Notes: The family of this 215-nucleotide sequence from Chelodina novaeguineae is "Small nucleolar RNA SNORA73 family". U17 (SNORA73A and SNORA73B) also known as E1 belongs to the H/ACA class of small nucleolar RNAs (snoRNAs). Gene Ontology terms of the family: RNA processing and nucleolus. The family is grouped with related families in Rfam's "snR30-U17 clan". NCBI's taxonomy places the organism under Eukaryota, Vertebrata, Gnathostomata, Pleurodira, Chelodina.
RNA sequence: CCAACAUGGUCAUCUGUUGAGGUUACUCAUGGCUCCGUCCAAGUGUCAUAUGGGAGUAUAGCCCUAAGUGCAGUGAUGUGCAAUCCCCUUCCACAGUUGGAAGAGCAAACCUGUCCCUGGUUCUAGAGCUGAUGGGGACAGAAUCCUGUAUAUUCCUAUAAUUUCUCAUUGUCUUUAGACAAUUACUGAGACGAGAGACCAUGCAGGGUGCAGCU
Numbered sequence: 001c002c003a004a005c006a007u008g009g010u011c012a013u014c015u016g017u018u019g020a021g022g023u024u025a026c027u028c029a030u031g032g033c034u035c036c037g038u039c040c041a042a043g044u045g046u047c048a049u050a051u052g053g054g055a056g057u058a059u060a061g062c063c064c065u066a067a068g069u070g071c072a073g074u075g076a077u078g079u080g081c082a083a084u085c086c087c088c089u090u091c092c093a094c095a096g097u098u099g100g101a102a103g104a105g106c107a108a109a110c111c112u113g114u115c116c117c118u119g120g121u122u123c124u125a126g127a128g129c130u131g132a133u134g135g136g137g138a139c140a141g142a143a144u145c146c147u148g149u150a151u152a153u154u155c156c157u158a159u160a161a162u163u164u165c166u167c168a169u170u171g172u173c174u175u176u177a178g179a180c181a182a183u184u185a186c187u188g189a190g191a192c193g194a195g196a197g198a199c200c201a202u203g204c205a206g207g208g209u210g211c212a213g214c215u
Base pairs, nucleotide, nucleotide: 002100004098006097007096008040009039011037014032015031016030018029019028020027021026043094044093045092052087053086054085055084056081058079059078060077061074062073145207146206147205148204149203150202151201162193164191165190166189167188171180172179173178